A member of the RNA family "S10-Clostridia ribosomal protein leader", 95 nucleotides long. Rfam's curators put it in the seed alignment. The family's consensus secondary structure is taken from published work. It is annotated as a cis-regulatory leader.

[Rfam]
RNA sequence: UGAUAGCAAUGAAGCGCGAGGUUGCUGCCCGGCAAAUGAAUAAGCUGGUGCAGGUUUUCCGUGGAGCGAAUGUCAAGUUAGGAAACUGGCGACAA
Numbered sequence: 001u002g003a004u005a006g007c008a009a010u011g012a013a014g015c016g017c018g019a020g021g022u023u024g025c026u027g028c029c030c031g032g033c034a035a036a037u038g039a040a041u042a043a044g045c046u047g048g049u050g051c052a053g054g055u056u057u058u059c060c061g062u063g064g065a066g067c068g069a070a071u072g073u074c075a076a077g078u079u080a081g082g083a084a085a086c087u088g089g090c091g092a093c094a095a
Base pairs, nucleotide, nucleotide: 014062015061016060018059019058020057021056025053026052027051028050071094072093073092074091077090078089079088080087